[Rfam]
RNA sequence: GAGUUACUAUAACGUGCAAGGUUAACCAGAAUAUGGGGAGCCGUAGUGAAAGCGAGCCUUAAUAGGGCGUUGAGUACGUUGUAGUAGACACGAAACCGGGUGAUCUAGCCAUGAGCAGGUUGAAGUUAGGGUAAAACCUAAUGGAGGACCGAACCUACGUUCGUUGAAAAGACCGAGGAUGACUUGUGGCUAGCGGUGAAAUUCCAAUCGAACCCGGAGAUAGCUAGUU
Numbered sequence: 001g002a003g004u005u006a007c008u009a010u011a012a013c014g015u016g017c018a019a020g021g022u023u024a025a026c027c028a029g030a031a032u033a034u035g036g037g038g039a040g041c042c043g044u045a046g047u048g049a050a051a052g053c054g055a056g057c058c059u060u061a062a063u064a065g066g067g068c069g070u071u072g073a074g075u076a077c078g079u080u081g082u083a084g085u086a087g088a089c090a091c092g093a094a095a096c097c098g099g100g101u102g103a104u105c106u107a108g109c110c111a112u113g114a115g116c117a118g119g120u121u122g123a124a125g126u127u128a129g130g131g132u133a134a135a136a137c138c139u140a141a142u143g144g145a146g147g148a149c150c151g152a153a154c155c156u157a158c159g160u161u162c163g164u165u166g167a168a169a170a171g172a173c174c175g176a177g178g179a180u181g182a183c184u185u186g187u188g189g190c191u192a193g194c195g196g197u198g199a200a201a202u203u204c205c206a207a208u209c210g211a212a213c214c215c216g217g218a219g220a221u222a223g224c225u226a227g228u229u
Stems, first nucleotide, its partner, number of pairs: 005086013020042004026036003046053002056068004089227001092224001096217006105193011116181001118150004125142006154178003158175002161172002195205002
RNA: Bacterial large subunit ribosomal RNA, nucleotides 623 to 851